[Rfam]
RNA sequence: GCGAUGAGCUAAGUUGCAUAAGACGAGAUUGACACGCCUUCUAGGCAUGCAUAAUGUGGAUUCUGCAGUCUCUCGCCGUAACACGCAUAAAAAGACGUCCUUUUUGGGCGUCUU
Numbered sequence: 001g002c003g004a005u006g007a008g009c010u011a012a013g014u015u016g017c018a019u020a021a022g023a024c025g026a027g028a029u030u031g032a033c034a035c036g037c038c039u040u041c042u043a044g045g046c047a048u049g050c051a052u053a054a055u056g057u058g059g060a061u062u063c064u065g066c067a068g069u070c071u072c073u074c075g076c077c078g079u080a081a082c083a084c085g086c087a088u089a090a091a092a093a094g095a096c097g098u099c100c101u102u103u104u105u106g107g108g109c110g111u112c113u114u
Stems, first nucleotide, its partner, number of pairs: 014081004024075005031070003036046002048067002051064001053062001092114009
A member of the RNA family "BsrF" from Halalkalibacter suaedae, 114 nucleotides long. The family's RNA type in Rfam is small RNA. The source organism's lineage runs through Bacteria, Bacillota, Bacilli, Bacillaceae and Halalkalibacter. On this family, see Saito et al., Gene 2008: "Novel small RNA-encoding genes in the intergenic regions of Bacillus subtilis". Pairs were carried over by alignment from the consensus structure, which was predicted with WAR.